A member of the RNA family "MIR2593 microRNA precursor family" from Trifolium medium, 115 nucleotides long. The family has 7 seed sequences and 1,262 matches in Rfam 15.1. Its family is annotated with RISC complex and miRNA-mediated post-transcriptional gene silencing in the Gene Ontology. The base pairs follow the family's consensus structure, which was predicted with RNAalifold. NCBI's taxonomy places the organism under Eukaryota, Streptophyta, Spermatophyta, Pentapetalae, Trifolium.

[Rfam]
RNA sequence: UUAUAAGCAAAAGUUAACUUUUCAGAUUCAUUGAAAAACUGAUGAAUUUGGUAUGUAAUAUAGACCAGAUAUAUCAAUUAUUCAAUGAAUCUGAAAAGUUGUCUUUUGCUUAUAA
Numbered sequence: 001u002u003a004u005a006a007g008c009a010a011a012a013g014u015u016a017a018c019u020u021u022u023c024a025g026a027u028u029c030a031u032u033g034a035a036a037a038a039c040u041g042a043u044g045a046a047u048u049u050g051g052u053a054u055g056u057a058a059u060a061u062a063g064a065c066c067a068g069a070u071a072u073a074u075c076a077a078u079u080a081u082u083c084a085a086u087g088a089a090u091c092u093g094a095a096a097a098g099u100u101g102u103c104u105u106u107u108g109c110u111u112a113u114a115a
Stems, first nucleotide, its partner, number of pairs: 002114006009107005015101011027089009037079002040076005049067004